[Rfam]
RNA sequence: GAUAGGCCGCUGUCGCUACCGUGAUUGGACACUGACACUCAGUCAACUAGCCUUGUUCGAGCGGUUGUCCCCAAGGGACCCGCAGGGGGAACAGGGGCGUUCCGAGCCACGAGGGGGGAGGCUCGGAACGCCCCUU
Numbered sequence: 001g002a003u004a005g006g007c008c009g010c011u012g013u014c015g016c017u018a019c020c021g022u023g024a025u026u027g028g029a030c031a032c033u034g035a036c037a038c039u040c041a042g043u044c045a046a047c048u049a050g051c052c053u054u055g056u057u058c059g060a061g062c063g064g065u066u067g068u069c070c071c072c073a074a075g076g077g078a079c080c081c082g083c084a085g086g087g088g089g090a091a092c093a094g095g096g097g098c099g100u101u102c103c104g105a106g107c108c109a110c111g112a113g114g115g116g117g118g119a120g121g122c123u124c125g126g127a128a129c130g131c132c133c134c135u136u
Base pairs, nucleotide, nucleotide: 001014002013003012004011005010015051016050017049018048021032022031023030033045034044035043036042058086061083062082063081064080096132097131098130099129100128101127102126103125104124105123106122107121108120110117
A member of the RNA family "Streptomyces RNA 3920" from Streptomyces laurentii, 136 nucleotides long. Lineage of the source: Bacteria > Actinomycetes > Kitasatosporales > Streptomycetaceae > Streptomyces. Rfam describes the family as follows. Identified by deep sequencing of transcriptome at the end of exponential growth phase. Sequencing size consistent with northern blot size. Streptomyces specific. The pairing is the family consensus, mapped onto this sequence. It is annotated as a small RNA.